[Rfam]
RNA sequence: GGGCAUUCAGAAGGCUUGUUGACUAGGCUACUAGCUGAGAACGAAGUUUCUCCAUUCUCGCCUAGGGGAAAGUCCCCGGACACAUGGCAGAAAGUGCCCUGCGUUCGAUCGCAGAUACUCUGCGUUACCAUUGGUGGCUAAGAUGUUCCAUGGAACGGAGCUUGGUAUUCACGAGUCACCUUUGUCAGUGCGAUAGAUAUGCAAGUAAUACUAACGCAUGAACAGAACGGGGCUCAUUCUCUGAAUGCA
Numbered sequence: 001g002g003g004c005a006u007u008c009a010g011a012a013g014g015c016u017u018g019u020u021g022a023c024u025a026g027g028c029u030a031c032u033a034g035c036u037g038a039g040a041a042c043g044a045a046g047u048u049u050c051u052c053c054a055u056u057c058u059c060g061c062c063u064a065g066g067g068g069a070a071a072g073u074c075c076c077c078g079g080a081c082a083c084a085u086g087g088c089a090g091a092a093a094g095u096g097c098c099c100u101g102c103g104u105u106c107g108a109u110c111g112c113a114g115a116u117a118c119u120c121u122g123c124g125u126u127a128c129c130a131u132u133g134g135u136g137g138c139u140a141a142g143a144u145g146u147u148c149c150a151u152g153g154a155a156c157g158g159a160g161c162u163u164g165g166u167a168u169u170c171a172c173g174a175g176u177c178a179c180c181u182u183u184g185u186c187a188g189u190g191c192g193a194u195a196g197a198u199a200u201g202c203a204a205g206u207a208a209u210a211c212u213a214a215c216g217c218a219u220g221a222a223c224a225g226a227a228c229g230g231g232g233c234u235c236a237u238u239c240u241c242u243g244a245a246u247g248c249a
Stems, first nucleotide, its partner, number of pairs: 003248009014206006023065006037052005071234002074232004086098004099114005116178001123173003127169001128165001136162003145156004208219002211216001
A member of the RNA family "RNase MRP" from Salvelinus namaycush, 249 nucleotides long. Lineage of the source: Eukaryota > Gnathostomata > Salmoniformes > Salmonidae > Salvelinus. The family has 66 seed sequences and 3,510 matches in Rfam 15.1. It is annotated as a ribozyme.